[Rfam]
RNA: Small nucleolar RNA SNORA22
RNA sequence: UGGCACAGUGAACAUCCAAGCGAGCUCUGUAGUUCCUUUGGCCUAACUCUGUGCUAGAAUAACCUGUGCUUUACCCUCUGCAUUGGAAGGAUCCCACCACCCCCUUUCAUAUGCAUUCAAAAGGACAGAACAAGC
Numbered sequence: 001u002g003g004c005a006c007a008g009u010g011a012a013c014a015u016c017c018a019a020g021c022g023a024g025c026u027c028u029g030u031a032g033u034u035c036c037u038u039u040g041g042c043c044u045a046a047c048u049c050u051g052u053g054c055u056a057g058a059a060u061a062a063c064c065u066g067u068g069c070u071u072u073a074c075c076c077u078c079u080g081c082a083u084u085g086g087a088a089g090g091a092u093c094c095c096a097c098c099a100c101c102c103c104c105u106u107u108c109a110u111a112u113g114c115a116u117u118c119a120a121a122a123g124g125a126c127a128g129a130a131c132a133a134g135c
Stems, first nucleotide, its partner, number of pairs: 003054006010048001014044001016041005022035001024033003056072003060068002077121001079119002081113003085108006